bantam microRNA precursor family: an 84-nucleotide RNA from Pediculus humanus.
The base pairs follow the family's consensus structure, which was predicted with RNAalifold.

RNA sequence: AAAGGAAAACGAAACUGGUUUUCACAAUGAUUUGCCAGAUAGUUUUUGUUAUUCUGAGAUCAUUGUGAAAGCUGAUUUUGUUAU
Numbered sequence: 001a002a003a004g005g006a007a008a009a010c011g012a013a014a015c016u017g018g019u020u021u022u023c024a025c026a027a028u029g030a031u032u033u034g035c036c037a038g039a040u041a042g043u044u045u046u047u048g049u050u051a052u053u054c055u056g057a058g059a060u061c062a063u064u065g066u067g068a069a070a071g072c073u074g075a076u077u078u079u080g081u082u083a084u
Stems, first nucleotide, its partner, number of pairs: 009081006016074010028062006
The family is grouped with related families in Rfam's "mir-81 clan". A search with the family's covariance model found it, with a score of 82 bits.